[Rfam]
RNA sequence: UUUAUGCGGCAGCAUAGGAUUGAAUUGUGGGAGAACUUAUAUGAUUCUAGCCCUUUUCAUUUUUAUGC
Numbered sequence: 001u002u003u004a005u006g007c008g009g010c011a012g013c014a015u016a017g018g019a020u021u022g023a024a025u026u027g028u029g030g031g032a033g034a035a036c037u038u039a040u041a042u043g044a045u046u047c048u049a050g051c052c053c054u055u056u057u058c059a060u061u062u063u064u065a066u067g068c
Stems, first nucleotide, its partner, number of pairs: 012068008021059004027053001029052002032048004036043001